[Rfam]
RNA sequence: AAACAUAAGCAGGGGUGCCGCAAGGCUGAGAGGGCUGAACGCCUAACCCUUUGAACCUGAUGUGGGUAAUGCCACCGUAGGGAAGUAAUGAUGAUGGGGU
Numbered sequence: 001a002a003a004c005a006u007a008a009g010c011a012g013g014g015g016u017g018c019c020g021c022a023a024g025g026c027u028g029a030g031a032g033g034g035c036u037g038a039a040c041g042c043c044u045a046a047c048c049c050u051u052u053g054a055a056c057c058u059g060a061u062g063u064g065g066g067u068a069a070u071g072c073c074a075c076c077g078u079a080g081g082g083a084a085g086u087a088a089u090g091a092u093g094a095u096g097g098g099g100u
Base pairs, nucleotide, nucleotide: 006088008086011050012049013048014047017026018025019024033043034042035041056081057080058079059078062075063074064073065072
RNA: TPP riboswitch aptamer (THI element)
Organism: Neomoorella thermoacetica